[Rfam]
Nucleotides: 329
Base pairs, nucleotide, nucleotide: 004329005328006327007325008295009294010293011292012291013290014289016027017026018025019024032323033322034321036320037319038318039317040316041213042212043211044210045209046063047062048061049060050059051058069208070207071206072205073204074095075094076093077092078091079090096108097106098105099104109203110202113143114142120135121134122133123132151201152200153197154196155195167186168185169184170183171182172181173180174179217233218232219231237266238265239264240263267280268279269278270277271276297308298307299306300305
Number, partner (000 for none) and nucleotide at each position: 001000a002000u003000a004329c005328c006327u007325g008295g009294g010293u011292a012291a013290c014289c015000g016027a017026g018025c019024g020000g021000a022000a023000a024019c025018g026017u027016u028000a029000g030000g031000a032323a033322a034321g035000u036320c037319c038318a039317u040316g041213c042212u043211a044210g045209c046063a047062c048061a049060g050059g051058c052000u053000g054000a055000g056000a057000u058051g059050c060049u061048u062047g063046u064000a065000g066000u067000g068000a069208u070207u071206g072205u073204g074095a075094u076093a077092g078091a079090g080000g081000a082000a083000a084000c085000a086000a087000u088000a089000a090079c091078u092077c093076u094075a095074u096108g097106c098105a099104c100000g101000u102000a103000a104099g105098u106097g107000a108096c109203g110202g111000c112000u113143g114142u115000g116000a117000a118000c119000g120135c121134a122133c123132c124000u125000g126000u127000u128000a129000a130000a131000u132123g133122g134121u135120g136000u137000u138000a139000u140000u141000a142114g143113c144000u145000u146000u147000a148000a149000a150000a151201g152200u153197g154196c155195c156000a157000c158000a159000g160000a161000g162000a163000c164000g165000a166000g167186c168185u169184u170183g171182a172181u173180a174179g175000g176000a177000a178000a179174c180173u181172a182171u183170u184169a185168a186167g187000g188000u189000g190000g191000a192000a193000c194000g195155g196154g197153u198000a199000a200152a201151c202110c203109c204073c205072g206071c207070a208069a209045g210044c211043u212042a213041g214000a215000a216000a217233c218232c219231c220000a221000a222000a223000c224000u225000a226000u227000g228000g229000u230000a231219g232218g233217g234000g235000c236000a237266c238265u239264u240263c241000a242000a243000u244000u245000c246000g247000g248000u249000a250000a251000a252000u253000g254000a255000a256000c257000u258000g259000a260000u261000g262000a263240g264239g265238a266237g267280a268279c269278g270277u271276a272000u273000u274000u275000a276271u277270a278269c279268g280267u281000a282000g283000a284000u285000a286000a287000a288000u289014g290013g291012u292011u293010a294009c295008c296000g297308c298307c299306u300305c301000g302000u303000a304000a305300g306299a307298g308297g309000u310000a311000c312000a313000g314000a315000a316040c317039a318038u319037g320036g321034c322033u323032u324000a325007u326000a327006a328005g329004g
About this RNA: Bacterial RNase P class B: a 329-nucleotide sequence from Candidatus Izimoplasma sp. HR2. On this family, see Frank and Pace, Annu Rev Biochem 1998: "Ribonuclease P: unity and diversity in a tRNA processing ribozyme". Its Rfam clan is "RNaseP clan". It scores 268 bits against the family's covariance model. The family's consensus secondary structure is taken from published work. Its family is annotated with dimeric ribonuclease P complex, ribonuclease P activity and tRNA processing in the Gene Ontology.